Shown here is a 108-nucleotide sequence from Croceicoccus sp. YJ47, a member of the family "TPP riboswitch aptamer (THI element)". Rfam links the family to the GO term thiamine pyrophosphate binding.
[Rfam]
RNA sequence: GGCCAUCCACCGGGGAGCCUGCUUGGGCUGAGAGGCGGGCGUAGCGCCCCGCGACCCGUCGAACCUGAACCUGUUAAGACAGGCGGAGGGAGUGGCGGUCCUUGCCCG
Numbered sequence: 001g002g003c004c005a006u007c008c009a010c011c012g013g014g015g016a017g018c019c020u021g022c023u024u025g026g027g028c029u030g031a032g033a034g035g036c037g038g039g040c041g042u043a044g045c046g047c048c049c050c051g052c053g054a055c056c057c058g059u060c061g062a063a064c065c066u067g068a069a070c071c072u073g074u075u076a077a078g079a080c081a082g083g084c085g086g087a088g089g090g091a092g093u094g095g096c097g098g099u100c101c102u103u104g105c106c107c108g
Stems, first nucleotide, its partner, number of pairs: 007095004011058004017028004035052005064089003070083004

Background: From the family's description: Vitamin B(1) in its active form thiamin pyrophosphate (TPP) is an essential coenzyme that is synthesised by coupling of pyrimidine and thiazole moieties in bacteria. The previously detected thiamin-regulatory element, thi box was extended, resulting in a new, highly conserved RNA secondary structure, the THI element, which is widely distributed in eubacteria and also occurs in some archaea. Analysis of operon structures identified a large number of new candidate thiamin-regulated genes, mostly transporters, in various prokaryotic organisms. The THI element is a riboswitch that directly binds to TPP to regulate gene expression through a variety of mechanisms in archaea, bacteria and eukaryotes. through a variety of mechanisms in archaea, bacteria and eukaryotes. Tandem TPP riboswitches have been reported where both TPP riboswitches respond independently to TPP. The structure of TPP riboswitch has been reported for Escherichia coli and Arabidopsis thaliana.